[Rfam]
RNA sequence: AUUCUAAGAAGAGGCGCGACUUUUAUUAGUAAUUAGCUGGAGAUUUACUAAAUCAACGAAGGCUUAUGAAAGGAAGGGUUGCCGAAACUAAUCACGUGGUGAAUGGUUAGUUGGGUCUUGGUUCAAUAAAUCAAGGACUGUCGUGCAAUCGCACGGAGAGCUUUCUAAGAU
Numbered sequence: 001a002u003u004c005u006a007a008g009a010a011g012a013g014g015c016g017c018g019a020c021u022u023u024u025a026u027u028a029g030u031a032a033u034u035a036g037c038u039g040g041a042g043a044u045u046u047a048c049u050a051a052a053u054c055a056a057c058g059a060a061g062g063c064u065u066a067u068g069a070a071a072g073g074a075a076g077g078g079u080u081g082c083c084g085a086a087a088c089u090a091a092u093c094a095c096g097u098g099g100u101g102a103a104u105g106g107u108u109a110g111u112u113g114g115g116u117c118u119u120g121g122u123u124c125a126a127u128a129a130a131u132c133a134a135g136g137a138c139u140g141u142c143g144u145g146c147a148a149u150c151g152c153a154c155g156g157a158g159a160g161c162u163u164u165c166u167a168a169g170a171u
Stems, first nucleotide, its partner, number of pairs: 006166001008164004016082009032067002035064004086112009113139002116136008141156006